[Rfam]
RNA: MIR159 microRNA precursor family
RNA sequence: UUGUAAAUUUGGGAGCUUUCUUUGGUUCAAAAUGAGGAAAGAAAGUGGGUAUACUCGUCUGCUUGUUCAUGGAUACCUCUGGGUUGCGCAGGAUAUAUUAGUUAGGGCUACAGCUUAAGGGUUUGCAUGGCCAAGGAGACGUUGCCUGCCUUCUCCUUUCGUUUCUUGGAUUGAAGGGAGCUCCUACAUGUAUCUCA
Numbered sequence: 001u002u003g004u005a006a007a008u009u010u011g012g013g014a015g016c017u018u019u020c021u022u023u024g025g026u027u028c029a030a031a032a033u034g035a036g037g038a039a040a041g042a043a044a045g046u047g048g049g050u051a052u053a054c055u056c057g058u059c060u061g062c063u064u065g066u067u068c069a070u071g072g073a074u075a076c077c078u079c080u081g082g083g084u085u086g087c088g089c090a091g092g093a094u095a096u097a098u099u100a101g102u103u104a105g106g107g108c109u110a111c112a113g114c115u116u117a118a119g120g121g122u123u124u125g126c127a128u129g130g131c132c133a134a135g136g137a138g139a140c141g142u143u144g145c146c147u148g149c150c151u152u153c154u155c156c157u158u159u160c161g162u163u164u165c166u167u168g169g170a171u172u173g174a175a176g177g178g179a180g181c182u183c184c185u186a187c188a189u190g191u192a193u194c195u196c197a
Base pairs, nucleotide, nucleotide: 013183014182015181016180017179018178019177020176023173024172025171026170027169028168029167036160059138060137062135063134064133068129069128070127071126076121